[Rfam]
Shown here is a 37-nucleotide RNA sequence, a member of the family "abiF RNA". Pairs were carried over by alignment from the consensus structure, which is taken from published work. The family has 126 seed sequences and 282 matches in Rfam 15.1. The family's RNA type in Rfam is small RNA. Actinobacteria, Bacteroidetes, Clostridia, Proteobacteria, one Clostridia phage.
RNA sequence: CCCGCCAAUCCUCUUCACAAUGCUUAAAUCGGCGGGU
Numbered sequence: 001c002c003c004g005c006c007a008a009u010c011c012u013c014u015u016c017a018c019a020a021u022g023c024u025u026a027a028a029u030c031g032g033c034g035g036g037u
Base pairs, nucleotide, nucleotide: 001036002035003034004033005032006031008024010022
Dot-bracket structure: ((((((.(.(...........).)......)))))).